Description: Glm Y RNA activator of glmS mRNA: a 160-nucleotide RNA sequence from Chimaeribacter arupi. A search with the family's covariance model found it, with a score of 125 bits. Rfam's curators write: This family consists of a number of bacterial RNA genes of around 167 bases in length. The tke1 RNA gene is present in Escherichia coli, Shigella flexneri, Yersinia pestis and Salmonella species where it is found between the yfhK and purL genes. The function of this RNA is unknown. For this family Rfam cites "Computational identification of noncoding RNAs in E. coli by comparative genomics" (Rivas et al., Curr Biol, 2001).

RNA sequence: AGUUGCUCAUUCACCUUACUUAUGACAGCCCCGCUGAUGCGGACUAUGCGCUCCAUAAGACCCGAAUGACGCCAAAGCAAGGUGCCUAUCGUCCACCGCACCGAUACCGCUGAAAGGCGCUAUCACCCGCAGGGCGACACGUUGAGUGAGGCACCAACCU
Numbered sequence: 001a002g003u004u005g006c007u008c009a010u011u012c013a014c015c016u017u018a019c020u021u022a023u024g025a026c027a028g029c030c031c032c033g034c035u036g037a038u039g040c041g042g043a044c045u046a047u048g049c050g051c052u053c054c055a056u057a058a059g060a061c062c063c064g065a066a067u068g069a070c071g072c073c074a075a076a077g078c079a080a081g082g083u084g085c086c087u088a089u090c091g092u093c094c095a096c097c098g099c100a101c102c103g104a105u106a107c108c109g110c111u112g113a114a115a116g117g118c119g120c121u122a123u124c125a126c127c128c129g130c131a132g133g134g135c136g137a138c139a140c141g142u143u144g145a146g147u148g149a150g151g152c153a154c155c156a157a158c159c160u
Stems, first nucleotide, its partner, number of pairs: 005072002007069006020058005027052003081155007090136005103124004138148003